[Rfam]
A member of the RNA family "Mammalian CPEB3 ribozyme" from Alligator mississippiensis, 76 nucleotides long. The match comes from Rfam's covariance-model search (44 bits). The source organism's lineage runs through Eukaryota, Bilateria, Chordata, Dipnotetrapodomorpha and Alligator. The mammalian CPEB3 ribozyme is a self cleaving RNA located in the second intron of the CPEB3 gene which belongs to a family of genes regulating messenger RNA polyadenylation. This ribozyme is highly conserved and found only in mammals. The CPEB3 ribozyme is structurally and biochemically related to the human hepatitis delta virus (HDV) ribozyme and the HDV ribozyme is proposed to have arisen from the human transcriptome. There is currently only one other known self cleaving ribozyme in mammals, the CoTC motif.
RNA sequence: GUUGCAAGUUUGUGACCUCAGCAGAAGAGUUCAUGGUGCGGCCAUGUCAGAUUCCAAUGAAUUUGCAAAUUCUGCU
Numbered sequence: 001g002u003u004g005c006a007a008g009u010u011u012g013u014g015a016c017c018u019c020a021g022c023a024g025a026a027g028a029g030u031u032c033a034u035g036g037u038g039c040g041g042c043c044a045u046g047u048c049a050g051a052u053u054c055c056a057a058u059g060a061a062u063u064u065g066c067a068a069a070u071u072c073u074g075c076u
Stems, first nucleotide, its partner, number of pairs: 014043001016041002020076007027039001029037001048065007
Dot-bracket structure: .............[.[[..((((((((.(.......).)]].]....(((((((....)))))))....)))))))